The record is a 68-nucleotide RNA from Halobacillus salinus, which matches "Bacillaceae-1 RNA" in Rfam. Lineage of the source: Bacteria > Bacillota > Caryophanales > Bacillaceae > Halobacillus. It is annotated as a small RNA. The match comes from Rfam's covariance-model search (50 bits).
RNA sequence: AGAUAAGGAGGUUCGAUCUAAAACCGCCACAUCAAGUGGCAACGUCGAACGACCCAACGUCCUGUUGG
Numbered sequence: 001a002g003a004u005a006a007g008g009a010g011g012u013u014c015g016a017u018c019u020a021a022a023a024c025c026g027c028c029a030c031a032u033c034a035a036g037u038g039g040c041a042a043c044g045u046c047g048a049a050c051g052a053c054c055c056a057a058c059g060u061c062c063u064g065u066u067g068g
Base pairs, nucleotide, nucleotide: 011050012049013048014047015046016045018044026040027039028038029037030036054068055067056066057065058064